The family of this 76-nucleotide sequence from Thalassarche chlororhynchos is "mir-1781 microRNA precursor family". The base pairs follow the family's consensus structure, which was predicted with RNAalifold.

RNA sequence: CAAGGAGCUUGUUUAACAGCUGAAUGAUUUAAAGCAACCAAAUUCCUUUAGCUUUAAAUCAUGCAGCUGUUGAACA
Numbered sequence: 001c002a003a004g005g006a007g008c009u010u011g012u013u014u015a016a017c018a019g020c021u022g023a024a025u026g027a028u029u030u031a032a033a034g035c036a037a038c039c040a041a042a043u044u045c046c047u048u049u050a051g052c053u054u055u056a057a058a059u060c061a062u063g064c065a066g067c068u069g070u071u072g073a074a075c076a
Stems, first nucleotide, its partner, number of pairs: 010076013024062012
Gene Ontology terms of the family: miRNA-mediated post-transcriptional gene silencing and RISC complex.